[Rfam]
Source information: The family of this 68-nucleotide RNA from Peromyscus maniculatus is "mir-302 microRNA precursor family". It scores 73 bits against the family's covariance model. Rfam links the family to the GO terms RISC complex and miRNA-mediated post-transcriptional gene silencing. A reference for the family is Suh et al. (2004), "Human embryonic stem cells express a unique set of microRNAs", Dev Biol. The family's consensus secondary structure was predicted with RNAalifold.

RNA sequence: CCUCUGCUUUAACAUGGGGACACCUGCUGUGUUAGACUAAAGUAAGUGCUUCCAUGUUUGAGUGGAGG
Numbered sequence: 001c002c003u004c005u006g007c008u009u010u011a012a013c014a015u016g017g018g019g020a021c022a023c024c025u026g027c028u029g030u031g032u033u034a035g036a037c038u039a040a041a042g043u044a045a046g047u048g049c050u051u052c053c054a055u056g057u058u059u060g061a062g063u064g065g066a067g068g
Base pairs, nucleotide, nucleotide: 001068002067003066005064006063007062008061011058012057013056014055015054016053017052018051019050021048022047023046025044026043027042028041